[Rfam]
The record is a 149-nucleotide RNA sequence from Coralloluteibacterium stylophorae, which matches "FMN riboswitch aptamer (RFN element)" in Rfam.
RNA sequence: UCGCGUCUUCAGGGCGGGGUGGAAGUCCCCACCGGCGGUAGGUCGCACUGCGACGAGCCCGCGAGCGCCCGCGCCGCCACGGCGCGGGGUCAGCAGAUCCGGUCGAACUCCGGAGCCGACGGUCACAGUCCGGAAUGAAGAAGACGCCG
Number, nucleotide and partner (000 for none) at each position: 001u000002c000003g147004c146005g145006u144007c143008u142009u141010c140011a000012g000013g000014g000015c000016g000017g029018g028019g027020u000021g000022g000023a000024a000025g000026u000027c019028c018029c017030c000031a129032c128033c118034g117035g062036c061037g060038g059039u000040a000041g000042g000043u000044c000045g000046c000047a000048c000049u000050g000051c000052g000053a000054c000055g000056a000057g116058c115059c038060c037061g036062c035063g000064a000065g094066c093067g000068c000069c000070c000071g000072c000073g000074c000075c000076g000077c000078c000079a000080c000081g000082g000083c000084g000085c000086g000087g000088g000089g000090u000091c000092a000093g066094c065095a000096g000097a000098u114099c113100c112101g111102g110103u000104c000105g000106a000107a000108c000109u000110c102111c101112g100113g099114a098115g058116c057117c034118g033119a000120c132121g131122g130123u000124c000125a000126c000127a000128g032129u031130c122131c121132g120133g000134a000135a000136u000137g000138a000139a000140g010141a009142a008143g007144a006145c005146g004147c003148c000149g000
The organism belongs to Coralloluteibacterium, within Bacteria. Pairs were carried over by alignment from the consensus structure, which is taken from published work. Gene Ontology term of the family: FMN binding.